[Rfam]
RNA: Glycine riboswitch aptamer
RNA sequence: UAACUCUGGAAAGCAAACCGUCGCAUGGCGGCGGGAUGCACCGAAGGAGUAAGCUCUUCCAGGGACCGUGAUCCGGCCCUGGACAGGGUGAAUCUCUCAGGUUCGAAGACAGAGGGGG
Dot-bracket structure: (..(((((.......(.(................).)..(((((..(((...(((((...........................)))))....))))).))).......)))))..).
Numbered sequence: 001u002a003a004c005u006c007u008g009g010a011a012a013g014c015a016a017a018c019c020g021u022c023g024c025a026u027g028g029c030g031g032c033g034g035g036a037u038g039c040a041c042c043g044a045a046g047g048a049g050u051a052a053g054c055u056c057u058u059c060c061a062g063g064g065a066c067c068g069u070g071a072u073c074c075g076g077c078c079c080u081g082g083a084c085a086g087g088g089u090g091a092a093u094c095u096c097u098c099a100g101g102u103u104c105g106a107a108g109a110c111a112g113a114g115g116g117g118g
Stems, first nucleotide, its partner, number of pairs: 001117001004114005016037001018035001040102003043098002047096003053089005